[Rfam]
RNA sequence: UAUCUCCGUAAGCAGCGCACUCCUCCUCCCAGCGCUCUUACGAAGACUGGUAACACUCCUCCUCCCAGUUGCCAGUCAAGAUCAAGAGCUCGGUGCACCUCCUCCCGCACCGAGCUCUUUUC
Numbered sequence: 001u002a003u004c005u006c007c008g009u010a011a012g013c014a015g016c017g018c019a020c021u022c023c024u025c026c027u028c029c030c031a032g033c034g035c036u037c038u039u040a041c042g043a044a045g046a047c048u049g050g051u052a053a054c055a056c057u058c059c060u061c062c063u064c065c066c067a068g069u070u071g072c073c074a075g076u077c078a079a080g081a082u083c084a085a086g087a088g089c090u091c092g093g094u095g096c097a098c099c100u101c102c103u104c105c106c107g108c109a110c111c112g113a114g115c116u117c118u119u120u121u122c
Stems, first nucleotide, its partner, number of pairs: 007042003011038002014036005045077010086117011

This 122-nucleotide sequence from Rhizobium sp. BG4 belongs to the Rfam family "Alphaproteobacterial ar14". NCBI's taxonomy places the organism under Bacteria, Pseudomonadota, Hyphomicrobiales, Rhizobiaceae, Rhizobium. The base pairs follow the family's consensus structure. It is annotated as a small RNA.